[Rfam]
RNA: narK RNA
RNA sequence: GGCACGCUAGAUGCUUGAUCGUUUCCACGGCAGGCCAACGGCGGUCUCCGCUACACGACAAAGGCGUCGC
Dot-bracket structure: ............................((.(((((......))))))).....................